[Rfam]
RNA sequence: ACCAUCCUUUUCUUGGGGUUGCACUACUGUCCAAUGGGUACCUAGUGAGGGCAGUACUGCUAACUCCUGCACAACACACCGAAAUCAACUAGAGCUUUGCUUUGCCUUGGUGCAGUUUUUGGAGAA
Numbered sequence: 001a002c003c004a005u006c007c008u009u010u011u012c013u014u015g016g017g018g019u020u021g022c023a024c025u026a027c028u029g030u031c032c033a034a035u036g037g038g039u040a041c042c043u044a045g046u047g048a049g050g051g052c053a054g055u056a057c058u059g060c061u062a063a064c065u066c067c068u069g070c071a072c073a074a075c076a077c078a079c080c081g082a083a084a085u086c087a088a089c090u091a092g093a094g095c096u097u098u099g100c101u102u103u104g105c106c107u108u109g110g111u112g113c114a115g116u117u118u119u120u121g122g123a124g125a126a
Base pairs, nucleotide, nucleotide: 006018007017008016009015021060022059023058026055027054028053029052030051031050032049038046039045084111085110086109087108090104091103092102093101094100095099
Dot-bracket structure: .....((((.....))))..(((..(((((((.....((.....))..)))))))..))).......................((((..((((((...))))))...))))...............